Shown here is a 194-nucleotide RNA from Cohnella nanjingensis, a member of the family "c-di-AMP riboswitch aptamer (ydaO/yuaA leader)". The organism belongs to Cohnella, within Bacteria. Rfam's curators write: This family represents a conserved RNA structure found upstream of the ydaO and yuaA genes in Bacillus subtilis and related genes in other bacteria. The ydaO/yuaA element is thought to act as a genetic 'off' switch for the ydaO and yuaA genes in its native state.

[Rfam]
RNA sequence: GAUUUGCGAUCGCUGAGUCCCUGAAGACAGGGAGCGGGGGAACCAAACGUGGACGGAUGUCCGGUGUGAGAGCCGGCAGACGACGCAGGGGUGAAUCCCGGGGGAACGGCACCUAGGAGCCGAGCCUUCGGGUAGGGCGACUCUCACCGCCCGAAUCCGGCAGCUAACCUCGCAAGCGUAUGGAGAGAGAGGAU
Numbered sequence: 001g002a003u004u005u006g007c008g009a010u011c012g013c014u015g016a017g018u019c020c021c022u023g024a025a026g027a028c029a030g031g032g033a034g035c036g037g038g039g040g041a042a043c044c045a046a047a048c049g050u051g052g053a054c055g056g057a058u059g060u061c062c063g064g065u066g067u068g069a070g071a072g073c074c075g076g077c078a079g080a081c082g083a084c085g086c087a088g089g090g091g092u093g094a095a096u097c098c099c100g101g102g103g104g105a106a107c108g109g110c111a112c113c114u115a116g117g118a119g120c121c122g123a124g125c126c127u128u129c130g131g132g133u134a135g136g137g138c139g140a141c142u143c144u145c146a147c148c149g150c151c152c153g154a155a156u157c158c159g160g161c162a163g164c165u166a167a168c169c170u171c172g173c174a175a176g177c178g179u180a181u182g183g184a185g186a187g188a189g190a191g192g193a194u
Base pairs, nucleotide, nucleotide: 011178012177013176014175018033019032020031021030022029034173035172036171037170038169039168044088089158090157091156097132098131099130100129101128102127103126104125135152136151137150138149